[Rfam]
RNA sequence: UUUGUCAAGGGUACUGGAGAAGGGAUGAGAAGGAAGUUACAGAAUUGACAGAACUACAAAU
Dot-bracket structure: ((((((((....................................)))))))).........
The record is a 61-nucleotide RNA sequence from Castor canadensis, which matches "Bacillus-plasmid RNA" in Rfam. The family's RNA type in Rfam is small RNA. The organism belongs to Castor, within Eukaryota.